[Rfam]
RNA sequence: UUGGUUGGGCAAUUGCUGCGUUAUGCAGAGGAAAGUCCAUGCUCACACGGUGCUGAGAUGCCCGUAGUGUUCGUGCUUCGCGAAAUAAUAAGCGAAGGCAGUCUGAGUGAUCGGACUGACGGCAGAGAAGAUACCUAAGUCCACCGGAUAUGGUAUGCAUCUCUUGAAAGUGCCACAGUGACGAAGUUCUGUCAGAAAUGACAGAAGUGGAACGAGGUAAACCCCGCGAGUGAGAAACUCAAACAAUGGUAGAGGCACUUUCCCGGAGAAAAUGAACAAAGGGAAAGGCUGGCAUUAUUAUGCCGGCAGAUAGAUGAUUGCCGCUUGUCGUACGAGCUUAAAAGGCGCUUCAGUACGCUUGAACAAAACAUGGCUUACAGAC
Numbered sequence: 001u002u003g004g005u006u007g008g009g010c011a012a013u014u015g016c017u018g019c020g021u022u023a024u025g026c027a028g029a030g031g032a033a034a035g036u037c038c039a040u041g042c043u044c045a046c047a048c049g050g051u052g053c054u055g056a057g058a059u060g061c062c063c064g065u066a067g068u069g070u071u072c073g074u075g076c077u078u079c080g081c082g083a084a085a086u087a088a089u090a091a092g093c094g095a096a097g098g099c100a101g102u103c104u105g106a107g108u109g110a111u112c113g114g115a116c117u118g119a120c121g122g123c124a125g126a127g128a129a130g131a132u133a134c135c136u137a138a139g140u141c142c143a144c145c146g147g148a149u150a151u152g153g154u155a156u157g158c159a160u161c162u163c164u165u166g167a168a169a170g171u172g173c174c175a176c177a178g179u180g181a182c183g184a185a186g187u188u189c190u191g192u193c194a195g196a197a198a199u200g201a202c203a204g205a206a207g208u209g210g211a212a213c214g215a216g217g218u219a220a221a222c223c224c225c226g227c228g229a230g231u232g233a234g235a236a237a238c239u240c241a242a243a244c245a246a247u248g249g250u251a252g253a254g255g256c257a258c259u260u261u262c263c264c265g266g267a268g269a270a271a272a273u274g275a276a277c278a279a280a281g282g283g284a285a286a287g288g289c290u291g292g293c294a295u296u297a298u299u300a301u302g303c304c305g306g307c308a309g310a311u312a313g314a315u316g317a318u319u320g321c322c323g324c325u326u327g328u329c330g331u332a333c334g335a336g337c338u339u340a341a342a343a344g345g346c347g348c349u350u351c352a353g354u355a356c357g358c359u360u361g362a363a364c365a366a367a368a369c370a371u372g373g374c375u376u377a378c379a380g381a382c
Base pairs, nucleotide, nucleotide: 004382005381006380007378008322009321010320011319012318013317014316016028017027018026019025020024033376034375035374037373038372039371040370041369042234043233044232045231046230047065048064049063050062052061053060071229072228073227074226075225076097077096078095079094080093081092098120099118100117101116102115103114104113105112106111121224122223124164125163126162127161132155133154134153135152139149140148141147170222171221172218173217174216187206188205189204190203191202192201193200194199238254239253240252258287259286260285261284262283263282264281288307289306290305291304292303293302294301295300325361327359329357330356331355332354333353
Bacterial RNase P class B: a 382-nucleotide RNA sequence from Jeotgalibacillus alimentarius.
Taxonomically the source falls in Jeotgalibacillus (Bacteria, Bacillota, Bacilli, Caryophanaceae).
Gene Ontology terms of the family: dimeric ribonuclease P complex, tRNA processing and ribonuclease P activity.
For this family Rfam cites "Ribonuclease P: unity and diversity in a tRNA processing ribozyme" (Frank and Pace, Annu Rev Biochem, 1998).
The family's RNA type in Rfam is ribozyme.
Rfam's curators write: Ribonuclease P (RNase P) is a ubiquitous endoribonuclease, found in archaea, bacteria and eukarya as well as chloroplasts and mitochondria.